[Rfam]
The record is a 191-nucleotide RNA sequence from Paenibacillus oceani, which matches "glmS glucosamine-6-phosphate activated ribozyme aptamer" in Rfam. Taxonomically the source falls in Paenibacillus (Bacteria, Bacillota, Caryophanales, Paenibacillaceae). The family's consensus secondary structure is taken from published work. The match comes from Rfam's covariance-model search (78 bits). Rfam classes the family as a riboswitch.
RNA sequence: UACGCGGUACAAGCGCCUGCGCUUGCCUGCGGUCGCCGGAACGGAUGAGGGCGUGCCGAGCAACAGGCGAGCGGACGAGGUAGAGGUGUUCGGAAUAAUCGGCGGGGACCUCUCGGCAGCAGCAUCAGGCCGUAAGCGGAAAUGGAAAAAGCUUGGGCGACCGGGCUCACAAAGCUUCCGCAAGAUGCGAG
Number, nucleotide and partner (000 for none) at each position: 001u000002a000003c000004g000005c000006g000007g000008u000009a000010c000011a000012a000013g000014c000015g000016c000017c000018u000019g000020c073021g072022c071023u070024u069025g068026c067027c066028u000029g064030c000031g000032g000033u000034c000035g000036c000037c000038g000039g000040a000041a000042c000043g000044g000045a000046u000047g000048a000049g000050g000051g000052c000053g000054u000055g000056c000057c000058g000059a000060g000061c000062a000063a000064c029065a000066g027067g026068c025069g024070a023071g022072c021073g020074g000075a000076c000077g000078a000079g000080g000081u000082a113083g112084a111085g110086g109087u000088g000089u000090u102091c101092g100093g099094a000095a000096u000097a000098a000099u093100c092101g091102g090103c000104g000105g000106g000107g000108a000109c086110c085111u084112c083113u082114c132115g131116g130117c129118a000119g126120c000121a000122g000123c000124a000125u000126c119127a000128g000129g117130c116131c115132g114133u000134a000135a000136g181137c180138g179139g178140a177141a176142a000143u000144g000145g000146a000147a000148a000149a000150a167151g166152c165153u164154u163155g162156g161157g000158c000159g000160a000161c156162c155163g154164g153165g152166c151167u150168c000169a000170c000171a000172a000173a000174g000175c000176u141177u140178c139179c138180g137181c136182a000183a000184g000185a000186u000187g000188c000189g000190a000191g000